[Rfam]
A member of the RNA family "Flavo-1 RNA" from Flavobacterium sp. GT3R68, 79 nucleotides long. Pairs were carried over by alignment from the consensus structure, which is taken from published work. A search with the family's covariance model found it, with a score of 67 bits. Lineage of the source: Bacteria > Pseudomonadati > Flavobacteriia > Flavobacteriaceae > Flavobacterium.

RNA sequence: GACUAGCCCAGAUAGAAACGGUAUCCUUUUUCUGCUUUCUUUAAGCAGGAAAAGAUACAAGUGAAUAGCUGGAAAUAGC
Numbered sequence: 001g002a003c004u005a006g007c008c009c010a011g012a013u014a015g016a017a018a019c020g021g022u023a024u025c026c027u028u029u030u031u032c033u034g035c036u037u038u039c040u041u042u043a044a045g046c047a048g049g050a051a052a053a054g055a056u057a058c059a060a061g062u063g064a065a066u067a068g069c070u071g072g073a074a075a076u077a078g079c
Base pairs, nucleotide, nucleotide: 009071010070011069013067014066018062019061023056024055025054029051030050031049032048033047034046035045036044
The family's RNA type in Rfam is small RNA.